[Rfam]
RNA sequence: AUCACAAGUUUGGAAGCCAUAGCAAAAGUGCUAACAGUAUGGCCCUGUCAGAUCUCAACGUAUCUGUGAAUUCUGCU
Number, nucleotide and partner (000 for none) at each position: 001a000002u000003c000004a000005c000006a000007a000008g000009u000010u000011u000012g000013g045014a000015a000016g043017c042018c041019a000020u000021a077022g076023c075024a074025a000026a072027a071028g040029u039030g038031c000032u000033a000034a000035c000036a000037g000038u030039a029040u028041g018042g017043c016044c000045c013046u000047g000048u000049c066050a065051g064052a063053u062054c000055u060056c000057a000058a000059c000060g055061u000062a053063u052064c051065u050066g049067u000068g000069a000070a000071u027072u026073c000074u024075g023076c022077u021
RNA: Mammalian CPEB3 ribozyme